[Rfam]
RNA sequence: UUCGCGAGGCAGUGAGUUGAUAGCGCCCUGUAGAGUGGGUUUAGAACUAAACGAGGCCUAUCCUUACUCGCCACAACGAA
Numbered sequence: 001u002u003c004g005c006g007a008g009g010c011a012g013u014g015a016g017u018u019g020a021u022a023g024c025g026c027c028c029u030g031u032a033g034a035g036u037g038g039g040u041u042u043a044g045a046a047c048u049a050a051a052c053g054a055g056g057c058c059u060a061u062c063c064u065u066a067c068u069c070g071c072c073a074c075a076a077c078g079a080a
Stems, first nucleotide, its partner, number of pairs: 008072003011068005019062005025057002028055002